The family of this 101-nucleotide sequence from Paenibacillus beijingensis is "Purine riboswitch aptamer".
[Rfam]
RNA sequence: GGAACAAUGAAUUUCUCUUUUGGUAUAAUCCCGGGAAUCGGUCCGGGAGUUUCUACGAGAUCACCGUAAAUGAUCCGCCUACGAGGAGAGGAAAAACAACA
Numbered sequence: 001g002g003a004a005c006a007a008u009g010a011a012u013u014u015c016u017c018u019u020u021u022g023g024u025a026u027a028a029u030c031c032c033g034g035g036a037a038u039c040g041g042u043c044c045g046g047g048a049g050u051u052u053c054u055a056c057g058a059g060a061u062c063a064c065c066g067u068a069a070a071u072g073a074u075c076c077g078c079c080u081a082c083g084a085g086g087a088g089a090g091g092a093a094a095a096a097c098a099a100c101a
Stems, first nucleotide, its partner, number of pairs: 018087004023082003029048007059075005
Notes:
From the family's description: Riboswitches are metabolite binding domains within certain messenger RNAs that serve as precision sensors for their corresponding targets. The family's consensus secondary structure is taken from published work. The family is grouped with related families in Rfam's "Purine riboswitches". A search with the family's covariance model found it, with a score of 61 bits.